[Rfam]
RNA: mir-8517 microRNA precursor family
Organism: Plutella xylostella
RNA sequence: UUAUAGAAUGUUUUAGCUGUUGAACUUUUUUGUCCCUCUCUGUCAAGUAACAAUUUGUUAUUUAUUUGAGAGGGACAAAACAGUUCAUUAGCUAAAACGUUCUCUAAC
Numbered sequence: 001u002u003a004u005a006g007a008a009u010g011u012u013u014u015a016g017c018u019g020u021u022g023a024a025c026u027u028u029u030u031u032g033u034c035c036c037u038c039u040c041u042g043u044c045a046a047g048u049a050a051c052a053a054u055u056u057g058u059u060a061u062u063u064a065u066u067u068g069a070g071a072g073g074g075a076c077a078a079a080a081c082a083g084u085u086c087a088u089u090a091g092c093u094a095a096a097a098c099g100u101u102c103u104c105u106a107a108c
Base pairs, nucleotide, nucleotide: 001107002106003105005103006102011097012096013095014094015093016092017091018090019089021087022086023085024084025083026082028080029069030068032066049059050058051057052056